[Rfam]
Shown here is a 46-nucleotide RNA sequence from Thalassarche chlororhynchos, a member of the family "Histone 3' UTR stem-loop". Gene Ontology term of the family: mRNA 3'-end processing by stem-loop binding and cleavage. From the family's description: The mRNAs of metazoan histone genes lack a poly-A tail. 3' end processing occurs at a site between a highly conserved stem-loop (modelled by this family) and a purine rich region around 20 nts downstream (the histone downstream element, or HDE). A search with the family's covariance model found it, with a score of 41 bits. Lineage of the source: Eukaryota > Gnathostomata > Euteleostomi > Aequornithes > Thalassarche.

RNA sequence: CCAAAGGCUCUUUUAAGAGCCACCCACUUUUUCUUUCGAAAGAGCU
Numbered sequence: 001c002c003a004a005a006g007g008c009u010c011u012u013u014u015a016a017g018a019g020c021c022a023c024c025c026a027c028u029u030u031u032u033c034u035u036u037c038g039a040a041a042g043a044g045c046u
Base pairs, nucleotide, nucleotide: 006021007020008019009018010017011016